Rfam assigns this 44-nucleotide RNA sequence from Paenibacillus sp. FSL H7-0357 to the family "PreQ1 (pre queuosine) riboswitch aptamer".
This family is a bacterial riboswitch that binds to the metabolite preQ1, an intermediate in the biosynthesis of the modified nucleoside queuosine from GTP. One example of this riboswitch is located in the leader of the Bacillus subtilis ykvJKLM (queCDEF) operon which encodes four genes necessary for queuosine production. PreQ1 binding to the riboswitch aptamer is thought to induce premature transcription termination within the leader to down-regulate expression of these genes.
The source organism's lineage runs through Bacteria, Bacillati, Bacilli, Caryophanales and Paenibacillus.
The match comes from Rfam's covariance-model search (52 bits).
On this family, see Reader et al., J Biol Chem 2004: "Identification of four genes necessary for biosynthesis of the modified nucleoside queuosine".
The pairing is the family consensus, mapped onto this sequence.
[Rfam]
RNA sequence: GCAGGAGAGGUUCGCAAACUCCCUCUAUAAAAAACUAAGACAUC
Dot-bracket structure: .....(((((.....[.....))))).........]........
Numbered sequence: 001g002c003a004g005g006a007g008a009g010g011u012u013c014g015c016a017a018a019c020u021c022c023c024u025c026u027a028u029a030a031a032a033a034a035c036u037a038a039g040a041c042a043u044c
Stems, first nucleotide, its partner, number of pairs: 006026005016036001